[Rfam]
RNA sequence: ACACACAAAUUUGAGGCCAUAGUAAAAGCACUCAUAGUGUGGUCUGUCAGAUUCAAACAAAAUCUGAGAAUUCUGAU
Numbered sequence: 001a002c003a004c005a006c007a008a009a010u011u012u013g014a015g016g017c018c019a020u021a022g023u024a025a026a027a028g029c030a031c032u033c034a035u036a037g038u039g040u041g042g043u044c045u046g047u048c049a050g051a052u053u054c055a056a057a058c059a060a061a062a063u064c065u066g067a068g069a070a071u072u073c074u075g076a077u
Stems, first nucleotide, its partner, number of pairs: 015044004021077001023075002026072002028040003048066006